[Rfam]
RNA sequence: GUUUCCUACUUGAUGAAUCCAACACGGAUGUACAAUUUUUGAGUCCGAGAGCGCUUAACUCGUGUGGAUAUUUCCGUUGCCUUCCUUCUGAUCUCUGCC
Number, nucleotide and partner (000 for none) at each position: 001g000002u000003u000004u097005c000006c000007u000008a000009c000010u000011u000012g000013a000014u000015g000016a000017a000018u000019c000020c000021a000022a000023c000024a000025c076026g075027g074028a073029u000030g000031u000032a000033c000034a000035a000036u000037u000038u000039u000040u000041g000042a000043g000044u000045c000046c000047g000048a000049g000050a000051g000052c000053g000054c000055u000056u000057a000058a000059c000060u000061c000062g000063u000064g000065u000066g000067g000068a000069u000070a000071u000072u000073u028074c027075c026076g025077u000078u000079g000080c000081c000082u000083u000084c000085c000086u000087u000088c000089u000090g000091a000092u000093c000094u000095c000096u000097g004098c000099c000
RNA: Small nucleolar RNA Z13/snr52